RNA sequence: UAACGAUAAUGGCAAACUCAUCGAAAGGUGGGGACGCAAAGCUUCGGGUCUAAGGCGGUAACGCUAUGACGGCUGGGCCGCCGAA
Numbered sequence: 001u002a003a004c005g006a007u008a009a010u011g012g013c014a015a016a017c018u019c020a021u022c023g024a025a026a027g028g029u030g031g032g033g034a035c036g037c038a039a040a041g042c043u044u045c046g047g048g049u050c051u052a053a054g055g056c057g058g059u060a061a062c063g064c065u066a067u068g069a070c071g072g073c074u075g076g077g078c079c080g081c082c083g084a085a
Stems, first nucleotide, its partner, number of pairs: 012037002017032006041078003045075003048070003055064003
Dot-bracket structure: ...........((...((((((....))))))...))...(((.((((((....(((....)))...)))..)))))).......
Overview:
A member of the RNA family "c-di-GMP-I riboswitch aptamer" from Paenibacillus validus, 85 nucleotides long. Lineage of the source: Bacteria > Bacillota > Bacilli > Caryophanales > Paenibacillus. It scores 79 bits against the family's covariance model. The family's consensus secondary structure is taken from published work.